[Rfam]
RNA: U2 spliceosomal RNA
Organism: Fusarium pseudograminearum
RNA sequence: UUAGCUCUCUUUGCCUUUUGGCUUAGAUCAAGUGUAGUAUCUGUUCUUUUCAGUUUAAUCUCUGAAAGAUGUCUAAGGACAUCAACAUUGAUUAUUCCUAUUUUUGGUCAGAGGGCAGUUUCCUCUGUGCUUGCACACGAUUCUGCCCACUGUGUCCCUGGUAUUACACUGCCUCCAGGUGACGCGAACUACA
Numbered sequence: 001u002u003a004g005c006u007c008u009c010u011u012u013g014c015c016u017u018u019u020g021g022c023u024u025a026g027a028u029c030a031a032g033u034g035u036a037g038u039a040u041c042u043g044u045u046c047u048u049u050u051c052a053g054u055u056u057a058a059u060c061u062c063u064g065a066a067a068g069a070u071g072u073c074u075a076a077g078g079a080c081a082u083c084a085a086c087a088u089u090g091a092u093u094a095u096u097c098c099u100a101u102u103u104u105u106g107g108u109c110a111g112a113g114g115g116c117a118g119u120u121u122c123c124u125c126u127g128u129g130c131u132u133g134c135a136c137a138c139g140a141u142u143c144u145g146c147c148c149a150c151u152g153u154g155u156c157c158c159u160g161g162u163a164u165u166a167c168a169c170u171g172c173c174u175c176c177a178g179g180u181g182a183c184g185c186g187a188a189c190u191a192c193a
Stems, first nucleotide, its partner, number of pairs: 008027003013022003048067006068083006113148006126137004151186006157179005